[Rfam]
RNA sequence: CGCUUCACCUUGCGGAUGAAAAACGGCAGGGGUGAGGGGAUAGGCGUACUGUGGGAUAGGUCUGAGAUACGCACGAGGGCAGCGAAGCUAGCACCUUCGGACCGAAAAGGCUGGCGAGU
Numbered sequence: 001c002g003c004u005u006c007a008c009c010u011u012g013c014g015g016a017u018g019a020a021a022a023a024c025g026g027c028a029g030g031g032g033u034g035a036g037g038g039g040a041u042a043g044g045c046g047u048a049c050u051g052u053g054g055g056a057u058a059g060g061u062c063u064g065a066g067a068u069a070c071g072c073a074c075g076a077g078g079g080c081a082g083c084g085a086a087g088c089u090a091g092c093a094c095c096u097u098c099g100g101a102c103c104g105a106a107a108a109g110g111c112u113g114g115c116g117a118g119u
Stems, first nucleotide, its partner, number of pairs: 001039001003037008026052004044072005059102001061100002075098005087115006

Shown here is a 119-nucleotide RNA from Massilia forsythiae, a member of the family "Betaproteobacteria-1 RNA".
The organism belongs to Massilia, within Bacteria.
The base pairs follow the family's consensus structure, which is taken from published work.